[Rfam]
RNA sequence: UGCAACGAUUUUACGAUUAAGAAGCAAUUGCUUCUUGUAUAAAUUAUAUAUCAAAUU
Number, nucleotide and partner (000 for none) at each position: 001u000002g000003c000004a000005a000006c000007g000008a000009u000010u000011u000012u000013a000014c000015g000016a000017u000018u037019a036020a035021g034022a033023a032024g031025c030026a000027a000028u000029u000030g025031c024032u023033u022034c021035u020036u019037g018038u000039a000040u000041a000042a000043a000044u000045u000046a000047u000048a000049u000050a000051u000052c000053a000054a000055a000056u000057u000
The record is a 57-nucleotide RNA from Pongamia pinnata, which matches "Plastid-rps18 3UTR RNA" in Rfam. Plastid rps18 is a non-coding RNA (ncRNA) present in plastids. It was identified as a short stem-loop motif in the 3 prime untranslate region (3UTR) of rps18 gene. Lineage of the source: Eukaryota > Euphyllophyta > Pentapetalae > fabids > Pongamia.